[Rfam]
RNA sequence: AGCUGAUAAAGCCACAACCGUCGCGAGGCGGUGUCGGAAAGCUACGGGUCUCCAACGAGACAGCCGGGUUACCUGC
Numbered sequence: 001a002g003c004u005g006a007u008a009a010a011g012c013c014a015c016a017a018c019c020g021u022c023g024c025g026a027g028g029c030g031g032u033g034u035c036g037g038a039a040a041g042c043u044a045c046g047g048g049u050c051u052c053c054a055a056c057g058a059g060a061c062a063g064c065c066g067g068g069u070u071a072c073c074u075g076c
Stems, first nucleotide, its partner, number of pairs: 012037002017032006040070004045066003048061003052057001

A member of the RNA family "c-di-GMP-I riboswitch aptamer" from Candidatus Electrothrix aarhusensis, 76 nucleotides long.